RNA: BsrG
Organism: Enterococcus hirae
RNA sequence: GAUAAGGGGUGAUGCUUAUGGUUAAGAGCUUUGUCCCUGGAAAGGAAUAAAGUUGUCAGUAUAUGAAGCAAUACAACUCAUGCUCGCAUUUGCGACAUUUGUGCUGUUGCUAAUUGACAAAAAAGACCAAAAAAAUAACCAUCUAAACCACUUUUAGCCAAGUUUUUAGAUGGUCAAUACUAUAAAAAAGCUACCGUCUUUUUAACGGCACGAAUUACUGAUGAAGGGAUUGUUUGCGCAAUCCCUU
Numbered sequence: 001g002a003u004a005a006g007g008g009g010u011g012a013u014g015c016u017u018a019u020g021g022u023u024a025a026g027a028g029c030u031u032u033g034u035c036c037c038u039g040g041a042a043a044g045g046a047a048u049a050a051a052g053u054u055g056u057c058a059g060u061a062u063a064u065g066a067a068g069c070a071a072u073a074c075a076a077c078u079c080a081u082g083c084u085c086g087c088a089u090u091u092g093c094g095a096c097a098u099u100u101g102u103g104c105u106g107u108u109g110c111u112a113a114u115u116g117a118c119a120a121a122a123a124a125g126a127c128c129a130a131a132a133a134a135a136u137a138a139c140c141a142u143c144u145a146a147a148c149c150a151c152u153u154u155u156a157g158c159c160a161a162g163u164u165u166u167u168a169g170a171u172g173g174u175c176a177a178u179a180c181u182a183u184a185a186a187a188a189a190g191c192u193a194c195c196g197u198c199u200u201u202u203u204a205a206c207g208g209c210a211c212g213a214a215u216u217a218c219u220g221a222u223g224a225a226g227g228g229a230u231u232g233u234u235u236g237c238g239c240a241a242u243c244c245c246u247u
Stems, first nucleotide, its partner, number of pairs: 001219001003217003009211001011209001014191004019150005025144002028140001030138002035045002055118006068083003092110004161181002194208004224247010